[Rfam]
RNA sequence: UGGGCGGAAAGGAACCAUGCGGCGUCACUGCGCAGUGUGGGCCGACAUCCCCGCCGAAAUGGAAAUGCCGAGAAACAAAGGUCGCGUCUGGUCGAGUCUCAGUACUUGCAGGCGCAUCACCCUUCUCGUUCACAUUU
Dot-bracket structure: ..(((((...((..((((((.((((....)))).)))))).)).......))))).............((((((.....(((.((.((((..................)))).))...))).)))))).........